[Rfam]
Shown here is a 73-nucleotide sequence from Branchiostoma floridae, a member of the family "mir-219 microRNA precursor family". Rfam 15.1 lists 1,318 matches to the family in 774 species. The literature on the family includes a 2003 paper in Science by Lim et al., "Vertebrate microRNA genes". Taxonomically the source falls in Branchiostoma (Eukaryota, Eumetazoa, Deuterostomia, Chordata). It scores 63 bits against the family's covariance model.
RNA sequence: UCCAGUGCUGAUUGUCCAAACGCAAUUCUUGUUGACCUUUGAACCAAGAACUGCGCUGGACAUCAGCAAUUGA
Numbered sequence: 001u002c003c004a005g006u007g008c009u010g011a012u013u014g015u016c017c018a019a020a021c022g023c024a025a026u027u028c029u030u031g032u033u034g035a036c037c038u039u040u041g042a043a044c045c046a047a048g049a050a051c052u053g054c055g056c057u058g059g060a061c062a063u064c065a066g067c068a069a070u071u072g073a
Stems, first nucleotide, its partner, number of pairs: 002072001004070001006068002009065004014061005021055004026050006